[Rfam]
RNA sequence: UACUGGCAACAGGCACGGGCGUCGAGGCAACUCUACGCCCGUGUAAGCGUAUUGAGGGCAGGAAGAGAAGA
Number, nucleotide and partner (000 for none) at each position: 001u000002a000003c012004u011005g010006g000007c000008a000009a000010c005011a004012g003013g044014c043015a042016c041017g040018g039019g038020c037021g036022u000023c000024g033025a032026g031027g000028c000029a000030a000031c026032u025033c024034u000035a000036c021037g020038c019039c018040c017041g016042u015043g014044u013045a000046a000047g000048c000049g000050u000051a000052u000053u000054g000055a000056g000057g000058g000059c000060a000061g000062g000063a000064a000065g000066a000067g000068a000069a000070g000071a000
The family of this 71-nucleotide RNA sequence from Sodalis-like endosymbiont of Proechinophthirus fluctus is "tpke11". In Yersinia located in ICR upstream dnaJ (chaperone)gene. Has temperature responsive RNA structure. Rfam links the family to the GO term response to temperature stimulus. The literature on the family includes a 2001 paper in Curr Biol by Rivas et al., "Computational identification of noncoding RNAs in E. coli by comparative genomics". Pairs were carried over by alignment from the consensus structure, which was predicted with WAR. Rfam classes the family as a small RNA. The organism belongs to Sodalis, within Bacteria. A search with the family's covariance model found it, with a score of 62 bits.